This 35-nucleotide sequence belongs to the Rfam family "DUF805b RNA".
RNA sequence: CGCGGGAAAGCCGAAAACCGUGAAAAGAGUAGGCU
Numbered sequence: 001c002g003c004g005g006g007a008a009a010g011c012c013g014a015a016a017a018c019c020g021u022g023a024a025a026a027g028a029g030u031a032g033g034c035u
Stems, first nucleotide, its partner, number of pairs: 002021004010034003
Dot-bracket structure: .((((....[[[.....))))..........]]].